[Rfam]
Annotation: The family of this 60-nucleotide sequence from Pseudomonas sp. 1239 is "nhaA-I RNA". Rfam's curators write: Acidobacteria, Alphaproteobacteria, Betaproteobacteria and Gammaproteobacteria, Verrucomicrobia, cand. division NC10. Rfam classes the family as a riboswitch.
RNA sequence: GGGUGCUAGCCGCAUAGGGCGGUGAGGCAGGUUAAAAGCAACGCCGGUCGGGCCGCCGCG
Numbered sequence: 001g002g003g004u005g006c007u008a009g010c011c012g013c014a015u016a017g018g019g020c021g022g023u024g025a026g027g028c029a030g031g032u033u034a035a036a037a038g039c040a041a042c043g044c045c046g047g048u049c050g051g052g053c054c055g056c057c058g059c060g
Stems, first nucleotide, its partner, number of pairs: 005028003009023003042060003046057003